[Rfam]
RNA sequence: CCAGCUCGAAGGCCACGAAUGCUCAUCACGUACAGGUUGCUUCAUGCACCCAUAAUUAUGAGCGGGCUAAGGUCUGAGUAUUUCAAUCCCCCUCGUUCAGCUUUAGCGGAGCCUAGUUGUAACAUGCUGCGCGACGUACCAGAAAAGCAGCUCCAUUUCAUGUCCCCAAGAUUCUGUCACGGCAGAGGAGGGUGAGAAUGAGAGGCUUUGAAAAUGUCGCGGGGAUCGGGCAAACUGUAUCCAUCGUGUAGCAGUCCUAUCGCGCGCGCGCUUGUCAAGACAGCGCUCAGGGACAUGGAGCAGUCUCACAUCUGCUGAGACCCAGUCUCUGGGCCUUUGCCGCGGUACAUUCUUCCCACCUACAUCAAUAGAUGUCAUGUACUUUCGUUGCCCUUAGGAUCUCUCCUUUGUUUUGGUGUACAUGCAGACUGCAGUCGAGGUAUCCUUCCAUGGUGUCUACCCUACGGAUGAGCGUCUCCGCUCAGCUUCAUGAAUAACCGCUUAUGGCUGGAGGUGACUACCUUACCAUGUCGCCCUCCUUGCGUAUGAGGGAUAUAUGCGAUAGCACCGGUUUACCCUUGAGUUCACUUCGUGGCUCGCGUAUCCUUUGUGGAUCGUGAAACUCGAUUCAGACUACUCUCGGGCUGG
Numbered sequence: 001c002c003a004g005c006u007c008g009a010a011g012g013c014c015a016c017g018a019a020u021g022c023u024c025a026u027c028a029c030g031u032a033c034a035g036g037u038u039g040c041u042u043c044a045u046g047c048a049c050c051c052a053u054a055a056u057u058a059u060g061a062g063c064g065g066g067c068u069a070a071g072g073u074c075u076g077a078g079u080a081u082u083u084c085a086a087u088c089c090c091c092c093u094c095g096u097u098c099a100g101c102u103u104u105a106g107c108g109g110a111g112c113c114u115a116g117u118u119g120u121a122a123c124a125u126g127c128u129g130c131g132c133g134a135c136g137u138a139c140c141a142g143a144a145a146a147g148c149a150g151c152u153c154c155a156u157u158u159c160a161u162g163u164c165c166c167c168a169a170g171a172u173u174c175u176g177u178c179a180c181g182g183c184a185g186a187g188g189a190g191g192g193u194g195a196g197a198a199u200g201a202g203a204g205g206c207u208u209u210g211a212a213a214a215u216g217u218c219g220c221g222g223g224g225a226u227c228g229g230g231c232a233a234a235c236u237g238u239a240u241c242c243a244u245c246g247u248g249u250a251g252c253a254g255u256c257c258u259a260u261c262g263c264g265c266g267c268g269c270g271c272u273u274g275u276c277a278a279g280a281c282a283g284c285g286c287u288c289a290g291g292g293a294c295a296u297g298g299a300g301c302a303g304u305c306u307c308a309c310a311u312c313u314g315c316u317g318a319g320a321c322c323c324a325g326u327c328u329c330u331g332g333g334c335c336u337u338u339g340c341c342g343c344g345g346u347a348c349a350u351u352c353u354u355c356c357c358a359c360c361u362a363c364a365u366c367a368a369u370a371g372a373u374g375u376c377a378u379g380u381a382c383u384u385u386c387g388u389u390g391c392c393c394u395u396a397g398g399a400u401c402u403c404u405c406c407u408u409u410g411u412u413u414u415g416g417u418g419u420a421c422a423u424g425c426a427g428a429c430u431g432c433a434g435u436c437g438a439g440g441u442a443u444c445c446u447u448c449c450a451u452g453g454u455g456u457c458u459a460c461c462c463u464a465c466g467g468a469u470g471a472g473c474g475u476c477u478c479c480g481c482u483c484a485g486c487u488u489c490a491u492g493a494a495u496a497a498c499c500g501c502u503u504a505u506g507g508c509u510g511g512a513g514g515u516g517a518c519u520a521c522c523u524u525a526c527c528a529u530g531u532c533g534c535c536c537u538c539c540u541u542g543c544g545u546a547u548g549a550g551g552g553a554u555a556u557a558u559g560c561g562a563u564a565g566c567a568c569c570g571g572u573u574u575a576c577c578c579u580u581g582a583g584u585u586c587a588c589u590u591c592g593u594g595g596c597u598c599g600c601g602u603a604u605c606c607u608u609u610g611u612g613g614a615u616c617g618u619g620a621a622a623c624u625c626g627a628u629u630c631a632g633a634c635u636a637c638u639c640u641c642g643g644g645c646u647g648g
Base pairs, nucleotide, nucleotide: 001648002647003646004645007642008641009640012596013595014594015593016592017591018590020064021063022062023061024060035051036050038048039047040046074632075631076630077629078628089224090223091222092221100112101111102110103109114129115128116127117126131220132219133218134217135216136215137214150206151205152204597620598619599618600617601616
Shown here is a 648-nucleotide sequence from Suillus subaureus, a member of the family "Nuclear RNase P". The source organism's lineage runs through Eukaryota, Opisthokonta, Agaricomycetes, Suillineae and Suillus. A search with the family's covariance model found it, with a score of 61 bits. The base pairs follow the family's consensus structure, which is taken from published work. Rfam classes the family as a ribozyme.